[Rfam]
RNA sequence: UUCAUAGAUGAUGAUGAGAUGAUUCACUUUAUCUUGAAUGGCCUUGAUUUUGAUUAUAAUCCCUUUGUGUCUUCUGUGCUUGGCCUGGUUGAUCUUUCUUUGAGUGAUUUGUACUCCCAAUUGCUUACAAUGAUC
Numbered sequence: 001u002u003c004a005u006a007g008a009u010g011a012u013g014a015u016g017a018g019a020u021g022a023u024u025c026a027c028u029u030u031a032u033c034u035u036g037a038a039u040g041g042c043c044u045u046g047a048u049u050u051u052g053a054u055u056a057u058a059a060u061c062c063c064u065u066u067g068u069g070u071c072u073u074c075u076g077u078g079c080u081u082g083g084c085c086u087g088g089u090u091g092a093u094c095u096u097u098c099u100u101u102g103a104g105u106g107a108u109u110u111g112u113a114c115u116c117c118c119a120a121u122u123g124c125u126u127a128c129a130a131u132g133a134u135c
Base pairs, nucleotide, nucleotide: 004134005133007131083105084104086102087101088100